[Rfam]
RNA: Small nucleolar RNA R21
Organism: Durio zibethinus
RNA sequence: CAUCCCUGUGAAGAACAAUUUUCAAAAAUUAAAAGUAGUGGACUGAUACUGAUUGAUGAUUAAUGAAUCUGAGGGAUG
Numbered sequence: 001c002a003u004c005c006c007u008g009u010g011a012a013g014a015a016c017a018a019u020u021u022u023c024a025a026a027a028a029u030u031a032a033a034a035g036u037a038g039u040g041g042a043c044u045g046a047u048a049c050u051g052a053u054u055g056a057u058g059a060u061u062a063a064u065g066a067a068u069c070u071g072a073g074g075g076a077u078g
Stems, first nucleotide, its partner, number of pairs: 001078006